RNA sequence: GUACUCCCUCUGUUCCAUAAUAUAAGAGCGCUUUUGACACUAUACUAAUGUCAAAAACGCUAUUAUAUUAUGGGACGGAGGGAGUAU
Numbered sequence: 001g002u003a004c005u006c007c008c009u010c011u012g013u014u015c016c017a018u019a020a021u022a023u024a025a026g027a028g029c030g031c032u033u034u035u036g037a038c039a040c041u042a043u044a045c046u047a048a049u050g051u052c053a054a055a056a057a058c059g060c061u062a063u064u065a066u067a068u069u070a071u072g073g074g075a076c077g078g079a080g081g082g083a084g085u086a087u
Stems, first nucleotide, its partner, number of pairs: 003085003007081005013075005019069007027061004032056008041047001
Dot-bracket structure: ..(((.(((((.(((((.(((((((.((((.((((((((.(.....).)))))))).)))).))))))).))))).))))).)))..

MIR1120/MIR1122 microRNA precursor family: an 87-nucleotide sequence from Triticum turgidum. Taxonomically the source falls in Triticum turgidum (Eukaryota, Viridiplantae, Magnoliopsida, commelinids). A search with the family's covariance model found it, with a score of 87 bits.